[Rfam]
RNA sequence: AACUAAAUAAUCAUUUUACCGUAGACAGUAGGUGCAUAAAGCUUAAUAUCCUACCGAGGUUCUAAUAUAUUCUUCGGGAUUAUUAUGCCUUUGCUGUUUGCGAAGGCAUUUUUUAAUGGUUGUU
Numbered sequence: 001a002a003c004u005a006a007a008u009a010a011u012c013a014u015u016u017u018a019c020c021g022u023a024g025a026c027a028g029u030a031g032g033u034g035c036a037u038a039a040a041g042c043u044u045a046a047u048a049u050c051c052u053a054c055c056g057a058g059g060u061u062c063u064a065a066u067a068u069a070u071u072c073u074u075c076g077g078g079a080u081u082a083u084u085a086u087g088c089c090u091u092u093g094c095u096g097u098u099u100g101c102g103a104a105g106g107c108a109u110u111u112u113u114u115a116a117u118g119g120u121u122g123u124u
Base pairs, nucleotide, nucleotide: 028054029053030052031051032050034042035041085109086108087107088106089105090104091103092102093101094100
RNA: Ribosomal protein L10 leader
Organism: Tepidibacillus sp. HK-1